This 227-nucleotide RNA sequence from Fulvimarina pelagi belongs to the Rfam family "permuted transfer-messenger RNA".
It scores 145 bits against the family's covariance model.
A reference for the family is Williams (2002), "The tmRNA Website: invasion by an intron", Nucleic Acids Res.
Lineage of the source: Bacteria > Pseudomonadati > Alphaproteobacteria > Fulvimarina > Fulvimarina pelagi.

RNA sequence: GGCGAUAAACGUUCGAUGCAAUAAACCUUUCGGACCCGGGGGCGGUACCCGGCGCCUCCACCAUGUCUCAUGAAGUCCGCUUUUCGGAUCCGAUGGGACAUGGCGGGGGCGAAAUAGGAUCGACGAGGGCGUAAAGAUCGGAUUUUUGCUCGGAAUGGUUCCGCCGUUAUCGGGCCGUAUCAAUAGUUGCAAACGACAACUAUGCGGAAGCACGUCUCGCCGCGUAA
Numbered sequence: 001g002g003c004g005a006u007a008a009a010c011g012u013u014c015g016a017u018g019c020a021a022u023a024a025a026c027c028u029u030u031c032g033g034a035c036c037c038g039g040g041g042g043c044g045g046u047a048c049c050c051g052g053c054g055c056c057u058c059c060a061c062c063a064u065g066u067c068u069c070a071u072g073a074a075g076u077c078c079g080c081u082u083u084u085c086g087g088a089u090c091c092g093a094u095g096g097g098a099c100a101u102g103g104c105g106g107g108g109g110c111g112a113a114a115u116a117g118g119a120u121c122g123a124c125g126a127g128g129g130c131g132u133a134a135a136g137a138u139c140g141g142a143u144u145u146u147u148g149c150u151c152g153g154a155a156u157g158g159u160u161c162c163g164c165c166g167u168u169a170u171c172g173g174g175c176c177g178u179a180u181c182a183a184u185a186g187u188u189g190c191a192a193a194c195g196a197c198a199a200c201u202a203u204g205c206g207g208a209a210g211c212a213c214g215u216c217u218c219g220c221c222g223c224g225u226a227a
Base pairs, nucleotide, nucleotide: 001150002149003148004147005146014140015139016138017137026129027128028127030126031125032124036052037051038050039049040048053111054110055109056108057107058106059105151166152165153164